A member of the RNA family "Bacterial small signal recognition particle RNA" from Oscillibacter sp. 1-3, 100 nucleotides long. NCBI's taxonomy places the organism under Bacteria, Bacillota, Clostridia, Eubacteriales, Oscillibacter.

RNA sequence: GAGCCGGUCUCGCGCAAUGGAUGCCCGCGAACCAUGUCAGGCGGGGAACCGAGCAGCAUUAAGCGGGAUGUUUCAUGUGCCGCGAGGGCGCCGGUUCCGC
Numbered sequence: 001g002a003g004c005c006g007g008u009c010u011c012g013c014g015c016a017a018u019g020g021a022u023g024c025c026c027g028c029g030a031a032c033c034a035u036g037u038c039a040g041g042c043g044g045g046g047a048a049c050c051g052a053g054c055a056g057c058a059u060u061a062a063g064c065g066g067g068a069u070g071u072u073u074c075a076u077g078u079g080c081c082g083c084g085a086g087g088g089c090g091c092c093g094g095u096u097c098c099g100c
Stems, first nucleotide, its partner, number of pairs: 004094005009086006015077001017076005024067005034059004042051003